[Rfam]
RNA sequence: AUCUGCAUCCGAAAGUGACCCUGGGCUACUCAUGGCCUGGUCAUGAAGAGUGCAGGGAGACGGUGCUGACAAUAUUCCCCUGGGGUUUGGAAGAUCCACUCCUGCCCUUGCCAAUCCUUGGAUGUUUCCCACG
Numbered sequence: 001a002u003c004u005g006c007a008u009c010c011g012a013a014a015g016u017g018a019c020c021c022u023g024g025g026c027u028a029c030u031c032a033u034g035g036c037c038u039g040g041u042c043a044u045g046a047a048g049a050g051u052g053c054a055g056g057g058a059g060a061c062g063g064u065g066c067u068g069a070c071a072a073u074a075u076u077c078c079c080c081u082g083g084g085g086u087u088u089g090g091a092a093g094a095u096c097c098a099c100u101c102c103u104g105c106c107c108u109u110g111c112c113a114a115u116c117c118u119u120g121g122a123u124g125u126u127u128c129c130c131a132c133g
Base pairs, nucleotide, nucleotide: 002056003055004054005053006052007051008050015044016043017042018041019040020039023037024036026034065130068128069127071126072125073124074123085116087114088113089112091109092108093107